This 103-nucleotide RNA sequence from Caenorhabditis auriculariae belongs to the Rfam family "SL2 RNA".
From the family's description: This family represents SL2 RNA. SL2 RNA is involved in trans splicing in lower eukaryotes. Trans-splicing is a form of RNA processing. The acquisition of a spliced leader from a SL RNA is a intra-molecular reaction which precisely joins exons derived from separately transcribed RNAs.
For this family Rfam cites "trans splicing of polycistronic Caenorhabditis elegans pre-mRNAs: analysis of the SL2 RNA" (Evans and Blumenthal, Mol Cell Biol, 2000).
The family has 30 seed sequences and 598 matches in Rfam 15.1.
The source organism's lineage runs through Eukaryota, Bilateria, Nematoda, Rhabditomorpha and Caenorhabditis.
Gene Ontology term of the family: mRNA trans splicing, via spliceosome.
Its Rfam clan is "SL clan".
The match comes from Rfam's covariance-model search (54 bits).
The family's RNA type in Rfam is non-coding RNA gene.
RNA sequence: GGUUAAUACCCAGUAACUCAAGGUAAUUGAGUGCCCUGACCAUUCAAAGAAUGUGUUAGAAACAAUUUUUGGAUAGCUCUUCCGGGGUUACCGGUCGAGCAAA
Numbered sequence: 001g002g003u004u005a006a007u008a009c010c011c012a013g014u015a016a017c018u019c020a021a022g023g024u025a026a027u028u029g030a031g032u033g034c035c036c037u038g039a040c041c042a043u044u045c046a047a048a049g050a051a052u053g054u055g056u057u058a059g060a061a062a063c064a065a066u067u068u069u070u071g072g073a074u075a076g077c078u079c080u081u082c083c084g085g086g087g088u089u090a091c092c093g094g095u096c097g098a099g100c101a102a103a
Base pairs, nucleotide, nucleotide: 007033008032009029013027014026016024018023037058038057039056040055041053042052043051044050045049078101080099081098082097084095086092087091